This 162-nucleotide RNA from Symbiodinium sp. CCMP2592 belongs to the Rfam family "ACEA small nucleolar RNA U3". Pairs were carried over by alignment from the consensus structure, which is taken from published work. Its Rfam clan is "U3 clan". A reference for the family is Zwieb (1997), "The uRNA database", Nucleic Acids Res.

RNA sequence: UCGACUGUACUUGCACAGGAUCACUUCUACAGUGAUUCCUCUUGCACACGCAACAGUCAUCAGAACACCUCACAAUCGCAGAUGAGGAACUGCAGCUGCCUCCAGCAAUGAAUUCGCUUCACUGCUUGAUGAGAGGAUUGGAGCAGCUGUAACUGAUGCGAU
Number, nucleotide and partner (000 for none) at each position: 001u000002c000003g039004a000005c000006u035007g000008u034009a033010c032011u031012u000013g000014c000015a000016c000017a028018g027019g026020a025021u000022c000023a000024c000025u020026u019027c018028u017029a000030c000031a011032g010033u009034g008035a006036u000037u000038c000039c003040u000041c000042u000043u000044g068045c000046a000047c000048a000049c063050g000051c000052a060053a000054c000055a000056g000057u000058c000059a000060u052061c000062a000063g049064a000065a000066c000067a000068c044069c000070u000071c000072a000073c000074a000075a000076u161077c160078g159079c158080a157081g000082a000083u000084g000085a000086g000087g000088a000089a000090c000091u000092g000093c149094a148095g147096c146097u145098g000099c000100c143101u142102c141103c140104a139105g138106c000107a000108a000109u116110g115111a000112a000113u000114u000115c110116g109117c136118u135119u134120c133121a000122c131123u000124g000125c000126u000127u000128g000129a000130u000131g122132a000133g120134a119135g118136g117137a000138u105139u104140g103141g102142a101143g100144c000145a097146g096147c095148u094149g093150u000151a000152a000153c000154u000155g000156a000157u080158g079159c078160g077161a076162u000